This 131-nucleotide RNA from Zonotrichia albicollis belongs to the Rfam family "Small nucleolar RNA SNORA24". The family has 5 seed sequences and 852 matches in Rfam 15.1. Rfam links the family to the GO terms nucleolus and RNA processing. ACA24 is a member of the H/ACA class of snoRNA that guide the sites of modification of uridines to pseudouridines.
[Rfam]
RNA sequence: AUCCAUGAAUCCAUGGGAGCUGCCAUCUGUGGCCGACUCCCUUCCUAGACAUGGAAGAGCAGAGCCUUGCUAAUUGGCAUAACUUUUACCCUCGUGUGGGUAUGAGUCGUUGACUGUGGCAAGCAACAAGC
Numbered sequence: 001a002u003c004c005a006u007g008a009a010u011c012c013a014u015g016g017g018a019g020c021u022g023c024c025a026u027c028u029g030u031g032g033c034c035g036a037c038u039c040c041c042u043u044c045c046u047a048g049a050c051a052u053g054g055a056a057g058a059g060c061a062g063a064g065c066c067u068u069g070c071u072a073a074u075u076g077g078c079a080u081a082a083c084u085u086u087u088a089c090c091c092u093c094g095u096g097u098g099g100g101u102a103u104g105a106g107u108c109g110u111u112g113a114c115u116g117u118g119g120c121a122a123g124c125a126a127c128a129a130g131c
Stems, first nucleotide, its partner, number of pairs: 002055006015041004020035001022033003068128002071125001074122003078118003083106003088101004
Source information
It is annotated as an H/ACA-box small nucleolar RNA.